skipping-rope RNA: an 80-nucleotide sequence from Butyrivibrio sp. XPD2006.
RNA sequence: AGAAGCUGAGGACGGAACAGGCAGCCGUCGCGCCCUAGAGGUCUUAAAAUGAGAUACUGGAUUGUCACCCAGUCUCUUCU
Numbered sequence: 001a002g003a004a005g006c007u008g009a010g011g012a013c014g015g016a017a018c019a020g021g022c023a024g025c026c027g028u029c030g031c032g033c034c035c036u037a038g039a040g041g042u043c044u045u046a047a048a049a050u051g052a053g054a055u056a057c058u059g060g061a062u063u064g065u066c067a068c069c070c071a072g073u074c075u076c077u078u079c080u
Stems, first nucleotide, its partner, number of pairs: 001080005008074001011029005020066004031051001032043001034041002056073005
The sequence is in the family's curated seed alignment. Rfam classes the family as a small RNA. Lineage of the source: Bacteria > Bacillati > Clostridia > Lachnospiraceae > Butyrivibrio.